[Rfam]
Shown here is a 182-nucleotide sequence from Phytophthora fragariaefolia, a member of the family "U2 spliceosomal RNA". Clan: U2 clan. The source organism's lineage runs through Eukaryota, Oomycota, Peronosporomycetes, Peronosporales and Phytophthora. About the family: U2 is a small nuclear RNA (snRNA) component of the spliceosome (involved in pre-mRNA splicing).

RNA sequence: ACGGAUUAACCGGCAGGUAAUAAAACACAUUUUCUGUUCUAAUCAGUGUGAAAACUGGUUUCCCGACUUUCGGUUGGGUCUUUUUCACAUUCAUUUUUGGAACUUCCGAGAAUGCUAGCUUGCUAGUUUUUCCUGGAACGGUCUCCGGGGACUUUCACUCCUUCCAGUGGGUGCAACAAUAA
Numbered sequence: 001a002c003g004g005a006u007u008a009a010c011c012g013g014c015a016g017g018u019a020a021u022a023a024a025a026c027a028c029a030u031u032u033u034c035u036g037u038u039c040u041a042a043u044c045a046g047u048g049u050g051a052a053a054a055c056u057g058g059u060u061u062c063c064c065g066a067c068u069u070u071c072g073g074u075u076g077g078g079u080c081u082u083u084u085u086c087a088c089a090u091u092c093a094u095u096u097u098u099g100g101a102a103c104u105u106c107c108g109a110g111a112a113u114g115c116u117a118g119c120u121u122g123c124u125a126g127u128u129u130u131u132c133c134u135g136g137a138a139c140g141g142u143c144u145c146c147g148g149g150g151a152c153u154u155u156c157a158c159u160c161c162u163u164c165c166a167g168u169g170g171g172u173g174c175a176a177c178a179a180u181a182a
Stems, first nucleotide, its partner, number of pairs: 001018001041060006062078007106136003110132003115126004140174001143171002146167001148165004
Dot-bracket structure: (................)......................((((((........)))))).(((((((...)))))))...........................(((.(((..((((....))))...))).)))...(..((.(.((((..........)))).)..))..)........